[Rfam]
RNA sequence: AAAGUCUCUCUCUGGCAAGGUAGGUCAACCACCAGAUAGUUAACAUCGGGCAGGCGGAGGAAACUCCAAAUGUUAAGCACGAUGGGCACAAGCCAGCAGGCCGUAUGCGAAAGUUGAAAUGAUUUAGCCUCGAAAUGAUUUUACGUAAGCAGGACGACAGAGUUCCCCUUCUGAAGUCCCCAUUCUAUGACGCGCAUGACAAGUAUCAUAGAGCUGCUUCGGGGUUGUAAGCA
Number, nucleotide and partner (000 for none) at each position: 001a000002a000003a000004g000005u000006c000007u000008c000009u000010c000011u036012c035013u034014g033015g032016c000017a000018a000019g030020g029021u028022a000023g000024g200025u199026c000027a000028a021029c020030c019031a000032c015033c014034a013035g012036a011037u000038a000039g087040u086041u000042a000043a000044c084045a000046u081047c000048g078049g074050g073051c072052a071053g000054g000055c000056g067057g066058a065059g064060g000061a000062a000063a000064c059065u058066c057067c056068a000069a000070a000071u052072g051073u050074u049075a000076a000077g000078c048079a000080c000081g046082a000083u000084g044085g000086g040087c039088a000089c000090a000091a000092g000093c000094c000095a000096g000097c000098a000099g000100g000101c000102c000103g000104u000105a000106u000107g000108c000109g000110a000111a000112a000113g000114u000115u000116g000117a000118a000119a000120u000121g000122a000123u000124u229125u000126a000127g225128c224129c223130u222131c221132g220133a000134a000135a000136u000137g000138a000139u000140u000141u000142u000143a000144c000145g000146u000147a219148a218149g217150c216151a215152g214153g178154a177155c176156g000157a000158c173159a172160g171161a170162g000163u000164u000165c000166c000167c000168c000169u000170u161171c160172u159173g158174a000175a000176g155177u154178c153179c000180c000181c000182a000183u213184u212185c211186u210187a209188u208189g207190a206191c000192g204193c203194g000195c000196a000197u000198g000199a025200c024201a000202a000203g193204u192205a000206u190207c189208a188209u187210a186211g185212a184213g183214c152215u151216g150217c149218u148219u147220c132221g131222g130223g129224g128225u127226u000227g000228u000229a124230a000231g000232c000233a000